[Rfam]
RNA sequence: GGACGUGAGGGCAAUCUGGCUGUGACAUCUGUCACCCCAGUGAUCACUAGUGCUGAUUCAACCGAUCUGGCUAGCUAGGUGAGUGUUCCCCUCUUCCUUUACCGCUCCAUGUAGAUCCCUCUAGAAGUUGUGCACGUGGUCAAAGAUGAUGAGAUUCCCUGACAGAGACAUACUGUUCAUUGUCUUUUUCAGGAGUAGGACUUGAUGAUCUUAAUGGGUCCCUUCCAACUCAAAACAUUUUGUGAUUCUAGGUUACCAUGUUCUCCUAGCUGCCUCUAUAGCUAUAACCCUGGUGUUGCCAGUUCGAGCUUUUUU
Dot-bracket structure: (((.(((((((..(...((....(((((.((((.(.(((..((((..(...........)...)))))))...)...)))).))))).)).)...)))))))...)))..........((((.(..((.....)).).)(((.....((......))..)))..)))..............................(.(.....((.(((..(...........(((...........)))....)..))).))...).)......................(.(.(.((((.....))))...)......).)
Numbered sequence: 001g002g003a004c005g006u007g008a009g010g011g012c013a014a015u016c017u018g019g020c021u022g023u024g025a026c027a028u029c030u031g032u033c034a035c036c037c038c039a040g041u042g043a044u045c046a047c048u049a050g051u052g053c054u055g056a057u058u059c060a061a062c063c064g065a066u067c068u069g070g071c072u073a074g075c076u077a078g079g080u081g082a083g084u085g086u087u088c089c090c091c092u093c094u095u096c097c098u099u100u101a102c103c104g105c106u107c108c109a110u111g112u113a114g115a116u117c118c119c120u121c122u123a124g125a126a127g128u129u130g131u132g133c134a135c136g137u138g139g140u141c142a143a144a145g146a147u148g149a150u151g152a153g154a155u156u157c158c159c160u161g162a163c164a165g166a167g168a169c170a171u172a173c174u175g176u177u178c179a180u181u182g183u184c185u186u187u188u189u190c191a192g193g194a195g196u197a198g199g200a201c202u203u204g205a206u207g208a209u210c211u212u213a214a215u216g217g218g219u220c221c222c223u224u225c226c227a228a229c230u231c232a233a234a235a236c237a238u239u240u241u242g243u244g245a246u247u248c249u250a251g252g253u254u255a256c257c258a259u260g261u262u263c264u265c266c267u268a269g270c271u272g273c274c275u276c277u278a279u280a281g282c283u284a285u286a287a288c289c290c291u292g293g294u295g296u297u298g299c300c301a302g303u304u305c306g307a308g309c310u311u312u313u314u315u
Stems, first nucleotide, its partner, number of pairs: 001108003005102007014092001018090002024087005030081004035074001037070003042067004048060001119167003122139001124137001127135002140162003148157002198261001200259001206255002209252003214247001226242003284315001286313001288306001290302004
A member of the RNA family "7SK RNA" from Piaya cayana, 315 nucleotides long.
7SK was discovered as an abundant small nuclear RNA in the mid-70s but a possible function has only recently been suggested. Two independent studies have found that 7SK RNA binds the CDK9/cyclin T complex (known as elongation factor P-TEFb).
A search with the family's covariance model found it, with a score of 119 bits.
The source organism's lineage runs through Eukaryota, Sauropsida, Cuculiformes, Coccyzidae and Piaya.
Pairs were carried over by alignment from the consensus structure, which is taken from published work.